Shown here is a 224-nucleotide sequence from Exiguobacterium artemiae, a member of the family "T-box leader". Rfam links the family to the GO term tRNA binding. NCBI's taxonomy places the organism under Bacteria, Bacillati, Bacilli, Exiguobacterium, Exiguobacterium artemiae. The base pairs follow the family's consensus structure, which is taken from published work. A search with the family's covariance model found it, with a score of 137 bits.
[Rfam]
RNA sequence: UAAGAACCGAUGACGAAGAAGAGUAAUUUAGAUCUCGGCUGCAUAGAGAGUCGCUCCCCGGCUGAAAGGGCGAUCAGACGAACUAGAUGAAAGACCCUUUUGAGGUAUUUUCCUGAAACGAACAGAGUAGGGGAAAUCGUAGGCAGGCGUUAACUGCACCGAGUGGCUGAGAUUUUUCAGCAACCAGGGUGGUACCACGGGAUCUUUAAGUUCUCGUCCCUUUG
Numbered sequence: 001u002a003a004g005a006a007c008c009g010a011u012g013a014c015g016a017a018g019a020a021g022a023g024u025a026a027u028u029u030a031g032a033u034c035u036c037g038g039c040u041g042c043a044u045a046g047a048g049a050g051u052c053g054c055u056c057c058c059c060g061g062c063u064g065a066a067a068g069g070g071c072g073a074u075c076a077g078a079c080g081a082a083c084u085a086g087a088u089g090a091a092a093g094a095c096c097c098u099u100u101u102g103a104g105g106u107a108u109u110u111u112c113c114u115g116a117a118a119c120g121a122a123c124a125g126a127g128u129a130g131g132g133g134a135a136a137u138c139g140u141a142g143g144c145a146g147g148c149g150u151u152a153a154c155u156g157c158a159c160c161g162a163g164u165g166g167c168u169g170a171g172a173u174u175u176u177u178c179a180g181c182a183a184c185c186a187g188g189g190u191g192g193u194a195c196c197a198c199g200g201g202a203u204c205u206u207u208a209a210g211u212u213c214u215c216g217u218c219c220c221u222u223u224g
Stems, first nucleotide, its partner, number of pairs: 007105002015100004026088006039077003050074006108136007138149003166181006186221004197217005